[Rfam]
RNA sequence: GCCGAUGUGGCGGAACGGCAGACGCACUCGACUCAAAAUCGAGCGGGAAACCAUGUGGGUUCGAAUCCCACCAUCGGCA
Numbered sequence: 001g002c003c004g005a006u007g008u009g010g011c012g013g014a015a016c017g018g019c020a021g022a023c024g025c026a027c028u029c030g031a032c033u034c035a036a037a038a039u040c041g042a043g044c045g046g047g048a049a050a051c052c053a054u055g056u057g058g059g060u061u062c063g064a065a066u067c068c069c070a071c072c073a074u075c076g077g078c079a
Stems, first nucleotide, its partner, number of pairs: 001078007010025003027043005055071005
Background: A member of the RNA family "tRNA" from Clostridium manihotivorum, 79 nucleotides long. Its family is annotated with triplet codon-amino acid adaptor activity in the Gene Ontology.